[Rfam]
RNA sequence: AUUUUUCUUUACCUGCGUAUUAACUAUUUGGUAACCAAAUUAAACGUUAAUGAAUAGUAUCCUUUUUAUUUGGAUGACGAGUGCCUCCUGUCACUUUGUUUGACGCCUCCCUGUCAACACCUAAGAGCCGUUCUUUACGGCUCUUUUUUU
Numbered sequence: 001a002u003u004u005u006u007c008u009u010u011a012c013c014u015g016c017g018u019a020u021u022a023a024c025u026a027u028u029u030g031g032u033a034a035c036c037a038a039a040u041u042a043a044a045c046g047u048u049a050a051u052g053a054a055u056a057g058u059a060u061c062c063u064u065u066u067u068a069u070u071u072g073g074a075u076g077a078c079g080a081g082u083g084c085c086u087c088c089u090g091u092c093a094c095u096u097u098g099u100u101u102g103a104c105g106c107c108u109c110c111c112u113g114u115c116a117a118c119a120c121c122u123a124a125g126a127g128c129c130g131u132u133c134u135u136u137a138c139g140g141c142u143c144u145u146u147u148u149u150u
Base pairs, nucleotide, nucleotide: 001055002054003053004052021049022048023047024046059075060074061073062072079096080095081094082093083092102115103114104113105112123145124144125143126142127141128140129139130138131137

A member of the RNA family "Alphaproteobacterial sRNA BjrC1505" from Cohaesibacter celericrescens, 150 nucleotides long.
A search with the family's covariance model found it, with a score of 74 bits.
NCBI's taxonomy places the organism under Bacteria, Pseudomonadati, Alphaproteobacteria, Cohaesibacteraceae, Cohaesibacter.